[Rfam]
RNA: L31-Firmicutes ribosomal protein leader
RNA sequence: CUAUGUCUAGAUAUUAGAUAUGGCGGAAGGAG
Number, nucleotide and partner (000 for none) at each position: 001c023002u022003a021004u020005g019006u018007c017008u016009a015010g014011a000012u000013a000014u010015u009016a008017g007018a006019u005020a004021u003022g002023g001024c000025g000026g000027a000028a000029g000030g000031a000032g000